[Rfam]
Nucleotides: 066
Stems, first nucleotide, its partner, number of pairs: 005062008016051003020047006026039003
Number, partner (000 for none) and nucleotide at each position: 001000g002000u003000a004000a005062c006061a007060c008059u009058c010057a011056a012055a013000a014000a015000a016051u017050g018049g019000c020047g021046g022045c023044a024043c025042u026039u027038u028037c029000u030000u031000u032000a033000g034000a035000c036000g037028g038027a039026a040000a041000a042025a043024g044023u045022g046021c047020c048000c049018c050017c051016a052000c053000a054000g055012u056011u057010u058009g059008a060007g061006u062005g063000g064000c065000a066000c

Shown here is a 66-nucleotide sequence from Tupaia belangeri, a member of the family "mir-290 microRNA precursor family". The source organism's lineage runs through Eukaryota, Sarcopterygii, Euarchontoglires, Scandentia and Tupaia belangeri. The family is grouped with related families in Rfam's "mir-290 clan". Its family is annotated with miRNA-mediated post-transcriptional gene silencing and RISC complex in the Gene Ontology. A reference for the family is Houbaviy et al. (2003), "Embryonic stem cell-specific MicroRNAs", Dev Cell. It scores 56 bits against the family's covariance model. Rfam 15.1 lists 565 matches to the family in 128 species.